Annotation:
The family of this 160-nucleotide RNA is "c-di-AMP riboswitch aptamer (ydaO/yuaA leader)". Rfam describes the family as follows. This family represents a conserved RNA structure found upstream of the ydaO and yuaA genes in Bacillus subtilis and related genes in other bacteria. The ydaO/yuaA element is thought to act as a genetic 'off' switch for the ydaO and yuaA genes in its native state. It is believed that the element may be triggered during osmotic shock leading to activation of ydaO, a predicted amino acid transporter gene, and members of the yuaA-yubG operon which code for KtrA and KtrB K+ transporters.

[Rfam]
RNA sequence: CGGUGGUACGAACUGAACUCUGUACGGCAGGAGCGGGGGACCCAAAGGUAAGUCGCCGGACCGGAAUUCACGGUCCGGCUUGGGGUGAAGCCGCGCAUGCGGCCGGGCAACUCCAGCCCGAACCCGACAGCUCACCUCGCAGGCGUCGGAGAGGAAAACC
Numbered sequence: 001c002g003g004u005g006g007u008a009c010g011a012a013c014u015g016a017a018c019u020c021u022g023u024a025c026g027g028c029a030g031g032a033g034c035g036g037g038g039g040a041c042c043c044a045a046a047g048g049u050a051a052g053u054c055g056c057c058g059g060a061c062c063g064g065a066a067u068u069c070a071c072g073g074u075c076c077g078g079c080u081u082g083g084g085g086u087g088a089a090g091c092c093g094c095g096c097a098u099g100c101g102g103c104c105g106g107g108c109a110a111c112u113c114c115a116g117c118c119c120g121a122a123c124c125c126g127a128c129a130g131c132u133c134a135c136c137u138c139g140c141a142g143g144c145g146u147c148g149g150a151g152a153g154g155a156a157a158a159c160c
Stems, first nucleotide, its partner, number of pairs: 013143002019031002033140006043082002083125003091102004105119004